[Rfam]
RNA sequence: GGUUAGUGCCGUGAAUAAGGCAGUAAGCCUGCAUGCAGGCCGAUGAGCCGUCAUUGACCCAGUGUGACUCUGCCGAUAUAGAUUGGGCGCACUAACC
Numbered sequence: 001g002g003u004u005a006g007u008g009c010c011g012u013g014a015a016u017a018a019g020g021c022a023g024u025a026a027g028c029c030u031g032c033a034u035g036c037a038g039g040c041c042g043a044u045g046a047g048c049c050g051u052c053a054u055u056g057a058c059c060c061a062g063u064g065u066g067a068c069u070c071u072g073c074c075g076a077u078a079u080a081g082a083u084u085g086g087g088c089g090c091a092c093u094a095a096c097c
Base pairs, nucleotide, nucleotide: 001097002096003095004094005093006092007091008090009089019074020073021072022071027040028039029038030037031036045070046069047068049066050065052064053063054062055061056060
This 97-nucleotide RNA sequence from Methylobacillus flagellatus belongs to the Rfam family "Methylophilales-1 RNA". NCBI's taxonomy places the organism under Bacteria, Pseudomonadati, Pseudomonadota, Methylobacillus, Methylobacillus flagellatus. Pairs were carried over by alignment from the consensus structure, which is taken from published work. Rfam's curators put it in the seed alignment. Rfam classes the family as a small RNA.